[Rfam]
RNA sequence: GCUCGUGAUGAUUUUCGUAUGGAAUCUCGUUCGGCUGAAUAUUCUUGUUGAGAGAUCGGAAUACCUGAAGCUG
Dot-bracket structure: ........................(((((..(((..........))).)))))....................
Description:
Shown here is a 73-nucleotide RNA from Acipenser ruthenus, a member of the family "Small nucleolar RNA SNORD30". The family's RNA type in Rfam is C/D-box small nucleolar RNA. Gene Ontology terms of the family: nucleolus and RNA processing. A search with the family's covariance model found it, with a score of 44 bits. The source organism's lineage runs through Eukaryota, Opisthokonta, Eumetazoa, Craniata and Acipenser. The pairing is the family consensus, mapped onto this sequence.